[Rfam]
RNA sequence: AAUCUGUCAUGGAUAGCCUAGCGGGAGACCAGCCACCAAGCCGGCAACCUUGCUUCGGCGCAAGCCAGCGAGCCCGGUGCCUGGUACGAAUCCUGGGGUCGUCGCUACACUCGUGCGAGUAGUCCGCGAUGCUGUUCGGCGUUAAGCAAUGGAAGUGACCCUUGAGGGAAGCAAUUCUGCAGAGACUCUUCCACCCUGGGAUGGCGUCACCAGAUUACACCGUCUCGUUACAGGGAAGCCGGCUGUUGGGCUGGGCCACUGUUUUU
Numbered sequence: 001a002a003u004c005u006g007u008c009a010u011g012g013a014u015a016g017c018c019u020a021g022c023g024g025g026a027g028a029c030c031a032g033c034c035a036c037c038a039a040g041c042c043g044g045c046a047a048c049c050u051u052g053c054u055u056c057g058g059c060g061c062a063a064g065c066c067a068g069c070g071a072g073c074c075c076g077g078u079g080c081c082u083g084g085u086a087c088g089a090a091u092c093c094u095g096g097g098g099u100c101g102u103c104g105c106u107a108c109a110c111u112c113g114u115g116c117g118a119g120u121a122g123u124c125c126g127c128g129a130u131g132c133u134g135u136u137c138g139g140c141g142u143u144a145a146g147c148a149a150u151g152g153a154a155g156u157g158a159c160c161c162u163u164g165a166g167g168g169a170a171g172c173a174a175u176u177c178u179g180c181a182g183a184g185a186c187u188c189u190u191c192c193a194c195c196c197u198g199g200g201a202u203g204g205c206g207u208c209a210c211c212a213g214a215u216u217a218c219a220c221c222g223u224c225u226c227g228u229u230a231c232a233g234g235g236a237a238g239c240c241g242g243c244u245g246u247u248g249g250g251c252u253g254g255g256c257c258a259c260u261g262u263u264u265u266u
Stems, first nucleotide, its partner, number of pairs: 002014003020263005027256001029254005039244007048234002050067001052065004069227004075222005081213005086207003090202009100141001102139003107135003111129005117124002142146001150193006161184003168177003
The family of this 266-nucleotide RNA sequence from Aspergillus sp. HF37 is "Fungal signal recognition particle RNA". By type it is a non-coding RNA gene. For this family Rfam cites "Towards the structure of the mammalian signal recognition particle" (Wild et al., Curr Opin Struct Biol, 2002). Rfam 15.1 lists 748 matches to the family in 741 species. Taxonomically the source falls in Aspergillus (Eukaryota, Opisthokonta, Ascomycota, Eurotiomycetes). Clan: SRP clan.